[Rfam]
RNA sequence: CAGGUUGAGAGGCGCUGCGACGGAUUAGAUCCGCCACGCUCGACCUGCGAUUCUUCACAAGGGCGCCUCCUGUCG
Numbered sequence: 001c002a003g004g005u006u007g008a009g010a011g012g013c014g015c016u017g018c019g020a021c022g023g024a025u026u027a028g029a030u031c032c033g034c035c036a037c038g039c040u041c042g043a044c045c046u047g048c049g050a051u052u053c054u055u056c057a058c059a060a061g062g063g064c065g066c067c068u069c070c071u072g073u074c075g
Stems, first nucleotide, its partner, number of pairs: 002046007021033005

A member of the RNA family "SAH (S-adenosyl-L-homocysteine) riboswitch aptamer" from Rhizocola hellebori, 75 nucleotides long. Rfam links the family to the GO terms S-adenosylhomocysteine metabolic process and regulation of gene expression. Pairs were carried over by alignment from the consensus structure, which is taken from published work. The source organism's lineage runs through Bacteria, Bacillati, Actinomycetes, Micromonosporales and Rhizocola. The literature on the family includes a 2008 paper in Mol Cell by Wang et al., "Riboswitches that sense S-adenosylhomocysteine and activate genes involved in coenzyme recycling".